The family of this 106-nucleotide sequence from Lacicoccus alkaliphilus is "SAM riboswitch aptamer (S box leader)". The base pairs follow the family's consensus structure, which is taken from published work. A search with the family's covariance model found it, with a score of 78 bits.

[Rfam]
RNA sequence: CUCUUAUUAAGAGUGAGUGAAGGGACUUGGCCCUGUGAAACUCCGGCAACAGCUUGUAAAAGCGAUGUGCCAAAUCCAACAGUUUCUUUAAACUGGAUGAUAAGAA
Numbered sequence: 001c002u003c004u005u006a007u008u009a010a011g012a013g014u015g016a017g018u019g020a021a022g023g024g025a026c027u028u029g030g031c032c033c034u035g036u037g038a039a040a041c042u043c044c045g046g047c048a049a050c051a052g053c054u055u056g057u058a059a060a061a062g063c064g065a066u067g068u069g070c071c072a073a074a075u076c077c078a079a080c081a082g083u084u085u086c087u088u089u090a091a092a093c094u095g096g097a098u099g100a101u102a103a104g105a106a
Stems, first nucleotide, its partner, number of pairs: 002105007013044001015043004022033003027079004045071004050067002052063004080095006
Overview:
Taxonomically the source falls in Lacicoccus alkaliphilus (Bacteria, Bacillota, Salinicoccaceae, Lacicoccus).